TD-2 RNA: a 100-nucleotide sequence from Treponema denticola. Its Rfam clan is "TD (Treponema denticola) motifs". The literature on the family includes a 2007 paper in Nucleic Acids Res by Weinberg et al., "Identification of 22 candidate structured RNAs in bacteria using the CMfinder comparative genomics pipeline". A search with the family's covariance model found it, with a score of 53 bits.

RNA sequence: GUUCAUAUCUACUCCCAUAAAAUAAUACGAUGUUUUGUGCAAAGCACAAAACUCGAAGAUAAACAGUGAGGCUGUAUUUCUGCCGAACUGUUUAUCGAUA
Numbered sequence: 001g002u003u004c005a006u007a008u009c010u011a012c013u014c015c016c017a018u019a020a021a022a023u024a025a026u027a028c029g030a031u032g033u034u035u036u037g038u039g040c041a042a043a044g045c046a047c048a049a050a051a052c053u054c055g056a057a058g059a060u061a062a063a064c065a066g067u068g069a070g071g072c073u074g075u076a077u078u079u080c081u082g083c084c085g086a087a088c089u090g091u092u093u094a095u096c097g098a099u100a
Base pairs, nucleotide, nucleotide: 028055029054030053032052033051034050035049036048037047038046039045058096059095060094061093062092063091064090065089066088067087070084071083
Dot-bracket structure: ...........................(((.((((((((.....)))))))))))..((((((((((..((...........))..))))))))))....
Lineage of the source: Bacteria > Spirochaetota > Spirochaetia > Treponema > Treponema denticola.